RNA sequence: AAAAACCAGCGUCGAAGUGCGCUGGCGAAGACUACAUGUGACCGUCAAUACCGUGCAGGGGCGGUAAGAGCGACGCGUUGCGUCUGAAGGACCGGAGGACGGUGGUAAAAACUAUCAAUUCCCUGCAACCGAUGUGACCGGAUUUUAUCAGGGUUUUAUAGAUCGUCAACACUAUAAGGCCGCAAAACUAUAACCAAUUGUA
Numbered sequence: 001a002a003a004a005a006c007c008a009g010c011g012u013c014g015a016a017g018u019g020c021g022c023u024g025g026c027g028a029a030g031a032c033u034a035c036a037u038g039u040g041a042c043c044g045u046c047a048a049u050a051c052c053g054u055g056c057a058g059g060g061g062c063g064g065u066a067a068g069a070g071c072g073a074c075g076c077g078u079u080g081c082g083u084c085u086g087a088a089g090g091a092c093c094g095g096a097g098g099a100c101g102g103u104g105g106u107a108a109a110a111a112c113u114a115u116c117a118a119u120u121c122c123c124u125g126c127a128a129c130c131g132a133u134g135u136g137a138c139c140g141g142a143u144u145u146u147a148u149c150a151g152g153g154u155u156u157u158a159u160a161g162a163u164c165g166u167c168a169a170c171a172c173u174a175u176a177a178g179g180c181c182g183c184a185a186a187a188c189u190a191u192a193a194c195c196a197a198u199u200g201u202a
Stems, first nucleotide, its partner, number of pairs: 006025007042105005049066005072084005133171003139165003144162004
Rfam assigns this 202-nucleotide RNA sequence from Paraburkholderia phymatum to the family "Burkholderia sRNA Bp1_Cand738_SIPHT". It is annotated as a small RNA. The sequence is in the family's curated seed alignment.